The record is a 211-nucleotide sequence from Streptomyces fructofermentans, which matches "Streptomyces RNA 1601" in Rfam. Rfam classes the family as a small RNA. Identified by deep sequencing of transcriptome at the end of exponential growth phase. Appears longer on northern blot than sequencing transcript. Streptomyces specific. It scores 170 bits against the family's covariance model.
[Rfam]
RNA sequence: AACGACCGGCCGGACACUCCUGUGCCCGGCCCGCAAGUGGAGGCUCCGAUCUCCCACCCGACCGCCCUCCGGGACGGCGGGUCACCCGGUCAGGCGGCCACCAUCGUUCCGUACGGACGAUGGAGCCGUCGAAUAUGCGCCCCGCGGUUGACCGCGGCGGUGCUCCGGUAACCCUUGGAGCCCCGCCUGCGUCCCGUCCGGGGCAUUUUUC
Numbered sequence: 001a002a003c004g005a006c007c008g009g010c011c012g013g014a015c016a017c018u019c020c021u022g023u024g025c026c027c028g029g030c031c032c033g034c035a036a037g038u039g040g041a042g043g044c045u046c047c048g049a050u051c052u053c054c055c056a057c058c059c060g061a062c063c064g065c066c067c068u069c070c071g072g073g074a075c076g077g078c079g080g081g082u083c084a085c086c087c088g089g090u091c092a093g094g095c096g097g098c099c100a101c102c103a104u105c106g107u108u109c110c111g112u113a114c115g116g117a118c119g120a121u122g123g124a125g126c127c128g129u130c131g132a133a134u135a136u137g138c139g140c141c142c143c144g145c146g147g148u149u150g151a152c153c154g155c156g157g158c159g160g161u162g163c164u165c166c167g168g169u170a171a172c173c174c175u176u177g178g179a180g181c182c183c184c185g186c187c188u189g190c191g192u193c194c195c196g197u198c199c200g201g202g203g204c205a206u207u208u209u210u211c
Stems, first nucleotide, its partner, number of pairs: 004091006012027002028083005034060001037057004041052002062077003065073003093130005101123008139204006145196003153191003156187005162181005